[Rfam]
Alpha operon ribosome binding site: a 100-nucleotide sequence from Legionella pneumophila. Lineage of the source: Bacteria > Pseudomonadati > Pseudomonadota > Legionellaceae > Legionella pneumophila subsp. pneumophila. Pairs were carried over by alignment from the consensus structure, which is taken from published work. The bacterial alpha operon ribosome binding site is surrounded by this complex pseudoknotted structure. Translation of the mRNA produces 4 ribosomal protein products, one of which (S4) acts as a translational repressor by binding to the nested pseudoknot region. The mechanism of repression is thought to involve a conformational switch in the pseudoknot region and ribosome entrapment. Gene Ontology term of the family: ribosome binding. For this family Rfam cites "Translational repression of the Escherichia coli alpha operon mRNA: importance of an mRNA conformational switch and a ternary entrapment complex" (Schlax et al., J Biol Chem, 2001). By type it is a cis-regulatory element.

RNA sequence: AUUUUAUUUUAUUAAAAUAGUAUCCUUCUGUCCCUUUCGACAGAACAAAUAACGUUCGGAGAAACUAAUGGCUCGUAUUGCAGGAGUUAAUAUACCUGAU
Numbered sequence: 001a002u003u004u005u006a007u008u009u010u011a012u013u014a015a016a017a018u019a020g021u022a023u024c025c026u027u028c029u030g031u032c033c034c035u036u037u038c039g040a041c042a043g044a045a046c047a048a049a050u051a052a053c054g055u056u057c058g059g060a061g062a063a064a065c066u067a068a069u070g071g072c073u074c075g076u077a078u079u080g081c082a083g084g085a086g087u088u089a090a091u092a093u094a095c096c097u098g099a100u
Stems, first nucleotide, its partner, number of pairs: 004048002007045004012040002024084003029075002037099002